[Rfam]
RNA sequence: AACGAUAAAGGCAAACUUAGGGAAACCUAAGGACGCAAAACUAAAGGGCCUGAAAUGGCAGCCAGUUACCGAAA
Numbered sequence: 001a002a003c004g005a006u007a008a009a010g011g012c013a014a015a016c017u018u019a020g021g022g023a024a025a026c027c028u029a030a031g032g033a034c035g036c037a038a039a040a041c042u043a044a045a046g047g048g049c050c051u052g053a054a055a056u057g058g059c060a061g062c063c064a065g066u067u068a069c070c071g072a073a074a
Stems, first nucleotide, its partner, number of pairs: 003071002011036002016031006034061001039067004046063002048059003
RNA: c-di-GMP-I-GGC riboswitch aptamer
Organism: Paratissierella segnis